Overview: The family of this 69-nucleotide RNA from Morus notabilis is "Plastid-psbA-1 3UTR RNA".
[Rfam]
RNA sequence: UAUUAUGAAAAAAAAGGAGCAAUACCAAACUUCGUGAUAGAACAAGAAGUUUGGUAUUGCUCCUUUUUU
Numbered sequence: 001u002a003u004u005a006u007g008a009a010a011a012a013a014a015a016g017g018a019g020c021a022a023u024a025c026c027a028a029a030c031u032u033c034g035u036g037a038u039a040g041a042a043c044a045a046g047a048a049g050u051u052u053g054g055u056a057u058u059g060c061u062c063c064u065u066u067u068u069u
Base pairs, nucleotide, nucleotide: 013066014065015064016063017062018061019060020059021058022057023056024055025054027052028051029050031048032047033046035044
Rfam's curators write: Plastid psbA-1 is a non-coding RNA (ncRNA) present in plastids.
The base pairs follow the family's consensus structure, which was predicted with LocARNA.
The family is grouped with related families in Rfam's "Plastid-psbA 3UTR RNA clan".
The family's RNA type in Rfam is cis-regulatory element.
Rfam's curators put it in the seed alignment.